Annotation
The family of this 35-nucleotide RNA from Gillisia limnaea is "S16-Flavobacteria ribosomal protein leader". The family's RNA type in Rfam is cis-regulatory leader. NCBI's taxonomy places the organism under Bacteria, Pseudomonadati, Bacteroidota, Gillisia, Gillisia limnaea.

RNA sequence: AUUAAUAACCGAGGUCGGGGACCUCACAAAUUAAU
Numbered sequence: 001a002u003u004a005a006u007a008a009c010c011g012a013g014g015u016c017g018g019g020g021a022c023c024u025c026a027c028a029a030a031u032u033a034a035u
Stems, first nucleotide, its partner, number of pairs: 001035006011025005